[Rfam]
Record summary:
The family of this 118-nucleotide RNA is "DUF3268 RNA". Rfam's curators put it in the seed alignment.

RNA sequence: GGCAGGGGCUUGCGCUCAGGCUUUCAGUACUUCGGAAGAGCUCCCGGAGUUAGACUCUCCCCGCGGGAGGGGAACUGUUACGGUUUUUGCGCACUGAGCGAUCCACACGGCGCAAGCA
Numbered sequence: 001g002g003c004a005g006g007g008g009c010u011u012g013c014g015c016u017c018a019g020g021c022u023u024u025c026a027g028u029a030c031u032u033c034g035g036a037a038g039a040g041c042u043c044c045c046g047g048a049g050u051u052a053g054a055c056u057c058u059c060c061c062c063g064c065g066g067g068a069g070g071g072g073a074a075c076u077g078u079u080a081c082g083g084u085u086u087u088u089g090c091g092c093a094c095u096g097a098g099c100g101a102u103c104c105a106c107a108c109g110g111c112g113c114a115a116g117c118a
Base pairs, nucleotide, nucleotide: 008117009116010115011114012113013112014111015110016109025077026076027075028074029050030049031048032047033046034045035044055071056070057069058068059067060066061065082104083103087101088100089099090098